RNA sequence: GCUAAUUCCGACAUAGGUACCUCUCAUAAUGCAACGUUUGCCGAAAGGCAAACUCGGCAGAUAAACAGUGAGGCUGAAUUUCUGCCGAACUGUUUAUCACAC
Numbered sequence: 001g002c003u004a005a006u007u008c009c010g011a012c013a014u015a016g017g018u019a020c021c022u023c024u025c026a027u028a029a030u031g032c033a034a035c036g037u038u039u040g041c042c043g044a045a046a047g048g049c050a051a052a053c054u055c056g057g058c059a060g061a062u063a064a065a066c067a068g069u070g071a072g073g074c075u076g077a078a079u080u081u082c083u084g085c086c087g088a089a090c091u092g093u094u095u096a097u098c099a100c101a102c
Stems, first nucleotide, its partner, number of pairs: 001018003005014002032056001034054001036053007060098010072086002
The record is a 102-nucleotide RNA from Treponema maltophilum, which matches "TD-2 RNA" in Rfam. Its Rfam clan is "TD (Treponema denticola) motifs". The literature on the family includes a 2007 paper in Nucleic Acids Res by Weinberg et al., "Identification of 22 candidate structured RNAs in bacteria using the CMfinder comparative genomics pipeline". It is annotated as a small RNA.